Rfam assigns this 64-nucleotide sequence from Myotis lucifugus to the family "mir-9242 microRNA precursor family".

[Rfam]
RNA sequence: GGCCUCCCUCUGUGGGGUGAUCAUCGUGGAGCCCCCCUGAUUGAUCACUCCACAGAGGGUGGCC
Numbered sequence: 001g002g003c004c005u006c007c008c009u010c011u012g013u014g015g016g017g018u019g020a021u022c023a024u025c026g027u028g029g030a031g032c033c034c035c036c037c038u039g040a041u042u043g044a045u046c047a048c049u050c051c052a053c054a055g056a057g058g059g060u061g062g063c064c
Base pairs, nucleotide, nucleotide: 001064002063003062004061006059007058008057009056010055011054012053013052014051015050016049017048018047019046020045021044022043023041024040025039026038028036029035
Dot-bracket structure: ((((.(((((((((((((((((((((.((.....)).)))).))))))))))))))))).))))
Rfam links the family to the GO terms RISC complex and miRNA-mediated post-transcriptional gene silencing.